Shown here is a 354-nucleotide RNA sequence from Shewanella sp. MR-7, a member of the family "Bacterial RNase P class A". Rfam classes the family as a ribozyme.

RNA sequence: CGAGUUGGCCAGACAGUCGCUGCGCUCGCAAGAGCGGGGAGGAAAGUCCGGGCUUCAAAGAGCGGGGUGCCAGGUAACGCCUGGGCGGUGCGAACCGACGACAAGUGCAACAGAGAGGAGACCGCCAUCAUAGCCUCGGCUAAGGUGGUAAGGGUGAAAGGGUGCGGUAAGAGCGCACCGUGCGGCUAGCAAUAGUCCGUAGCAAGGUAAACUCCACCCGAAGCAAGACCAAAUAGGGUUCCGUAUGGCGUGGCUCGCGUUGGAACCGGGUAGGUCGCUUGAGCCUGCGAGCGAUUGCAGGCCUAGAUGAAUGACUGUCCAAGACAGGACCCGGCUUAUCGGCCAACUCAUUAA
Numbered sequence: 001c002g003a004g005u006u007g008g009c010c011a012g013a014c015a016g017u018c019g020c021u022g023c024g025c026u027c028g029c030a031a032g033a034g035c036g037g038g039g040a041g042g043a044a045a046g047u048c049c050g051g052g053c054u055u056c057a058a059a060g061a062g063c064g065g066g067g068u069g070c071c072a073g074g075u076a077a078c079g080c081c082u083g084g085g086c087g088g089u090g091c092g093a094a095c096c097g098a099c100g101a102c103a104a105g106u107g108c109a110a111c112a113g114a115g116a117g118g119a120g121a122c123c124g125c126c127a128u129c130a131u132a133g134c135c136u137c138g139g140c141u142a143a144g145g146u147g148g149u150a151a152g153g154g155u156g157a158a159a160g161g162g163u164g165c166g167g168u169a170a171g172a173g174c175g176c177a178c179c180g181u182g183c184g185g186c187u188a189g190c191a192a193u194a195g196u197c198c199g200u201a202g203c204a205a206g207g208u209a210a211a212c213u214c215c216a217c218c219c220g221a222a223g224c225a226a227g228a229c230c231a232a233a234u235a236g237g238g239u240u241c242c243g244u245a246u247g248g249c250g251u252g253g254c255u256c257g258c259g260u261u262g263g264a265a266c267c268g269g270g271u272a273g274g275u276c277g278c279u280u281g282a283g284c285c286u287g288c289g290a291g292c293g294a295u296u297g298c299a300g301g302c303c304u305a306g307a308u309g310a311a312u313g314a315c316u317g318u319c320c321a322a323g324a325c326a327g328g329a330c331c332c333g334g335c336u337u338a339u340c341g342g343c344c345a346a347c348u349c350a351u352u353a354a
Stems, first nucleotide, its partner, number of pairs: 002349009011339001012319007020039002023036005044337003048334005053223004060256004065219005070084005085099001086097004100214002105212002107208002122153002124149006131142004161179006180203001181201005186195003227276004237267006247261005283302008